Rfam assigns this 89-nucleotide RNA sequence from Aquisalibacillus elongatus to the family "c-di-GMP-I riboswitch aptamer". Lineage of the source: Bacteria > Bacillati > Caryophanales > Bacillaceae > Aquisalibacillus. Rfam links the family to the GO term cyclic-di-GMP binding. The match comes from Rfam's covariance-model search (81 bits). From the family's description: GEMM was predicted in a large-scale screen for bacterial structured RNA regulatory elements.
RNA sequence: UUUUUAAAAGGGCAAACUCGCUGAAAGGCGGGGACGCAAAGCCACAGGUCUAAAGCAGAAUCAUUUGCUAUGGCGGCUGGGUUGCAAAA
Dot-bracket structure: ...........((...((((((....))))))...))..((((.((((((....((((......))))...)))..)))))))......